[Rfam]
RNA sequence: GGAAGUGACCGCGGGAGCCGGGUGGUCCCGGCUGAGAGGGCGGAGUGACCGAUCCGCCGACCGCACGAACCUGAUCCGGAUCAUGCCGGCGAAGGGAGUGGAACACGGCGCCAU
Number, nucleotide and partner (000 for none) at each position: 001g000002g000003a000004a000005g000006u102007g000008a000009c000010c098011g064012c063013g062014g061015g000016a000017g032018c031019c030020g029021g028022g000023u000024g000025g000026u000027c000028c021029c020030g019031g018032c017033u000034g000035a000036g000037a000038g000039g058040g057041c056042g055043g054044a000045g000046u000047g000048a000049c000050c000051g000052a000053u000054c043055c042056g041057c040058c039059g000060a000061c014062c013063g012064c011065a000066c000067g000068a000069a000070c095071c094072u093073g000074a000075u000076c089077c088078g087079g086080a000081u000082c000083a000084u000085g000086c079087c078088g077089g076090c000091g000092a000093a072094g071095g070096g000097a000098g010099u000100g000101g000102a006103a000104c000105a000106c000107g000108g000109c000110g000111c000112c000113a000114u000

A member of the RNA family "TPP riboswitch aptamer (THI element)" from Nocardiopsis kunsanensis, 114 nucleotides long. From the family's description: Vitamin B(1) in its active form thiamin pyrophosphate (TPP) is an essential coenzyme that is synthesised by coupling of pyrimidine and thiazole moieties in bacteria. The match comes from Rfam's covariance-model search (60 bits). The source organism's lineage runs through Bacteria, Actinomycetota, Actinomycetes, Nocardiopsidaceae and Nocardiopsis. Gene Ontology term of the family: thiamine pyrophosphate binding. The family's consensus secondary structure is taken from published work.